Rfam assigns this 127-nucleotide RNA from Effusibacillus dendaii to the family "c-di-AMP riboswitch aptamer (ydaO/yuaA leader)". Its family is annotated with cyclic-di-AMP binding and regulation of gene expression in the Gene Ontology. NCBI's taxonomy places the organism under Bacteria, Bacillota, Caryophanales, Alicyclobacillaceae, Effusibacillus. A search with the family's covariance model found it, with a score of 82 bits.
RNA sequence: AGAAAAAAUUUGCCGAAUCUGACAACUGUCAGUACGGGGGAACUAUUUUUUGGGGUGAAUCACACACGUGUAGGGGACCUCAACCCGAACCCGACAACUAACCUCGGAGGCAACAGGAGGAGUCGCG
Dot-bracket structure: ..........((((....((((......))))..(((((....((.....))(((.....(((....)))..(((........)))...))).........)))))..))))...............